[Rfam]
RNA sequence: UGUAACACAUAAGCUUUUUGCUUGAAUUAUGUUCCCGAUUUAAAAUAUAAGACGAGCGAAAAGUUUGUUUGUUGCAAG
Numbered sequence: 001u002g003u004a005a006c007a008c009a010u011a012a013g014c015u016u017u018u019u020g021c022u023u024g025a026a027u028u029a030u031g032u033u034c035c036c037g038a039u040u041u042a043a044a045a046u047a048u049a050a051g052a053c054g055a056g057c058g059a060a061a062a063g064u065u066u067g068u069u070u071g072u073u074g075c076a077a078g
Stems, first nucleotide, its partner, number of pairs: 003074004009068001011066008020057001023054002027050006
Overview: Rfam assigns this 78-nucleotide RNA sequence from Acipenser ruthenus to the family "mir-208 microRNA precursor family". On this family, see Kloosterman et al., Nucleic Acids Res 2006: "Cloning and expression of new microRNAs from zebrafish".